[Rfam]
The record is a 106-nucleotide RNA sequence from Pseudomonas sp. GV071, which matches "Guanidine-I riboswitch aptamer" in Rfam. Its family is annotated with regulation of gene expression in the Gene Ontology. Rfam describes the family as follows. This family represents a conserved RNA structure found upstream of the ykkC and yxkD genes in Bacillus subtilis and related genes in other bacteria. The function of this family is unclear although it has been suggested that it may function to switch on efflux pumps and detoxification systems in response to harmful environmental molecules.

RNA sequence: GCAAUGGAUGACUAGGGUUCCGGCUAGCGCUUAAAACGCUCAGUGACUGGUCCGAGAGUUGUCGACCUCCAGUGAGGUUACACGGCGGGACAAAAGCCCGGGAGAC
Numbered sequence: 001g002c003a004a005u006g007g008a009u010g011a012c013u014a015g016g017g018u019u020c021c022g023g024c025u026a027g028c029g030c031u032u033a034a035a036a037c038g039c040u041c042a043g044u045g046a047c048u049g050g051u052c053c054g055a056g057a058g059u060u061g062u063c064g065a066c067c068u069c070c071a072g073u074g075a076g077g078u079u080a081c082a083c084g085g086c087g088g089g090a091c092a093a094a095a096g097c098c099c100g101g102g103a104g105a106c
Base pairs, nucleotide, nucleotide: 007063008062009061010060011059012058015053016052020050021049022047023044024043025042064079065078066077067076068075069074081101083104087099088098089097